Rfam assigns this 155-nucleotide sequence from Roseovarius sp. TE539 to the family "Ruegeria cis2 sRNA". Rfam links the family to the GO term regulation of gene expression. Rfam classes the family as a small RNA. NCBI's taxonomy places the organism under Bacteria, Pseudomonadati, Alphaproteobacteria, Rhodobacterales, Roseovarius.
RNA sequence: AUCGAACUGUUGCGCGGGAAAUAAUUGAUGAACACGAAGCCACGACAUUGGUCGAUGGCGUGAAAAAGCGGGUUCCAGUCGAACAUCGCGAGAAUAUAUCCGGGCAUCAUGUUGGCCACGAACAUCUUGCCCGAGGCGAUCAUGUUGGCGCGCUG
Numbered sequence: 001a002u003c004g005a006a007c008u009g010u011u012g013c014g015c016g017g018g019a020a021a022u023a024a025u026u027g028a029u030g031a032a033c034a035c036g037a038a039g040c041c042a043c044g045a046c047a048u049u050g051g052u053c054g055a056u057g058g059c060g061u062g063a064a065a066a067a068g069c070g071g072g073u074u075c076c077a078g079u080c081g082a083a084c085a086u087c088g089c090g091a092g093a094a095u096a097u098a099u100c101c102g103g104g105c106a107u108c109a110u111g112u113u114g115g116c117c118a119c120g121a122a123c124a125u126c127u128u129g130c131c132c133g134a135g136g137c138g139a140u141c142a143u144g145u146u147g148g149c150g151c152g153c154u155g
Stems, first nucleotide, its partner, number of pairs: 002037003008034004015027003039059004043054004067154004072084004088149002091146002094143002100136002103132002105129002109125002112121003